[Rfam]
Small nucleolar RNA Z159/U59: an 84-nucleotide sequence from Eutrema salsugineum. Rfam classes the family as a C/D-box small nucleolar RNA. The family is grouped with related families in Rfam's "SNORD59 clan". The base pairs follow the family's consensus structure, which was predicted with PFOLD. A search with the family's covariance model found it, with a score of 53 bits. The family has 10 seed sequences and 1,401 matches in Rfam 15.1.
RNA sequence: CCUCGCGAUGAUGAUCAAAACAUAACUUUCGUUCUUCCGAGAUUCAUUAUGCGGAAAAUUUAUGGAGACCUGAACUGAGUGAUG
Numbered sequence: 001c002c003u004c005g006c007g008a009u010g011a012u013g014a015u016c017a018a019a020a021c022a023u024a025a026c027u028u029u030c031g032u033u034c035u036u037c038c039g040a041g042a043u044u045c046a047u048u049a050u051g052c053g054g055a056a057a058a059u060u061u062a063u064g065g066a067g068a069c070c071u072g073a074a075c076u077g078a079g080u081g082a083u084g
Base pairs, nucleotide, nucleotide: 003082004081005080006079